[Rfam]
RNA sequence: GGCCACCUUCGGGGGGCUUACAUAGCGGGCCAUGACCAAUUCGGGUUGGGUUCGCACAGCUAAACGGAAGACAGAAA
Numbered sequence: 001g002g003c004c005a006c007c008u009u010c011g012g013g014g015g016g017c018u019u020a021c022a023u024a025g026c027g028g029g030c031c032a033u034g035a036c037c038a039a040u041u042c043g044g045g046u047u048g049g050g051u052u053c054g055c056a057c058a059g060c061u062a063a064a065c066g067g068a069a070g071a072c073a074g075a076a077a
Base pairs, nucleotide, nucleotide: 001018002017003016004015006014007013008012027053028052029051030050
Shown here is a 77-nucleotide RNA from Halocynthiibacter styelae, a member of the family "L2-Alphaproteobacteria ribosomal protein leader". Lineage of the source: Bacteria > Pseudomonadati > Pseudomonadota > Paracoccaceae > Halocynthiibacter. The match comes from Rfam's covariance-model search (57 bits).